[Rfam]
RNA sequence: AGUGUUUCUGGCGGUGGCUGAACUCUAAGAAAGGAGUGAUGCUGCUAUGUUCAUCCUAGGAAAGGAACACCCGCCAUGACUGUGUAUCAGGCGUUGACAUUGGCAAUUGCCUUUGCCACCUUGAUCAUUACCCUUGAUCGACA
Numbered sequence: 001a002g003u004g005u006u007u008c009u010g011g012c013g014g015u016g017g018c019u020g021a022a023c024u025c026u027a028a029g030a031a032a033g034g035a036g037u038g039a040u041g042c043u044g045c046u047a048u049g050u051u052c053a054u055c056c057u058a059g060g061a062a063a064g065g066a067a068c069a070c071c072c073g074c075c076a077u078g079a080c081u082g083u084g085u086a087u088c089a090g091g092c093g094u095u096g097a098c099a100u101u102g103g104c105a106a107u108u109g110c111c112u113u114u115g116c117c118a119c120c121u122u123g124a125u126c127a128u129u130a131c132c133c134u135u136g137a138u139c140g141a142c143a
Stems, first nucleotide, its partner, number of pairs: 014119005033057002036054004078098001080096001082094004124138004
Dot-bracket structure: .............(((((..............((.((((...........)))).))....................(.(.((((.....)))).).)................)))))....((((.......)))).....
This 143-nucleotide sequence from Enterococcus pallens belongs to the Rfam family "Listeria sRNA rli28". By type it is a small RNA. The family's consensus secondary structure was predicted with RNAalifold.